[Rfam]
RNA sequence: GGCUAUAGGCGCGCCUUUCUCCUCCUCCCUUAAGCGAGGUGUGCCGACAUUUCGCGGAUCCUCUCCUCCUCCCUGGAUCUGCGUCAAAAAGACGGCGAUGUCCUCCUCCUCCCUGGGCAUCGCCGUUUUU
Numbered sequence: 001g002g003c004u005a006u007a008g009g010c011g012c013g014c015c016u017u018u019c020u021c022c023u024c025c026u027c028c029c030u031u032a033a034g035c036g037a038g039g040u041g042u043g044c045c046g047a048c049a050u051u052u053c054g055c056g057g058a059u060c061c062u063c064u065c066c067u068c069c070u071c072c073c074u075g076g077a078u079c080u081g082c083g084u085c086a087a088a089a090a091g092a093c094g095g096c097g098a099u100g101u102c103c104u105c106c107u108c109c110u111c112c113c114u115g116g117g118c119a120u121c122g123c124c125g126u127u128u129u130u
Stems, first nucleotide, its partner, number of pairs: 008045002011042007053083009093125011
RNA: Alphaproteobacterial ar14
Organism: Paracoccaceae bacterium